[Rfam]
RNA sequence: CCCCCGCAUCCAGAGUUGAGCUGACGCUCAACGCCAACCUGCCUUUCCCGGCAAGGUGGCGUCCCGGGGACCCCUCCGGGAGAUGUGGCCGUACCGGCAACAACGGGACACGCC
Numbered sequence: 001c002c003c004c005c006g007c008a009u010c011c012a013g014a015g016u017u018g019a020g021c022u023g024a025c026g027c028u029c030a031a032c033g034c035c036a037a038c039c040u041g042c043c044u045u046u047c048c049c050g051g052c053a054a055g056g057u058g059g060c061g062u063c064c065c066g067g068g069g070a071c072c073c074c075u076c077c078g079g080g081a082g083a084u085g086u087g088g089c090c091g092u093a094c095c096g097g098c099a100a101c102a103a104c105g106g107g108a109c110a111c112g113c114c
Stems, first nucleotide, its partner, number of pairs: 006086005015032001017030005033060003038056003041052003045110001048107002088098004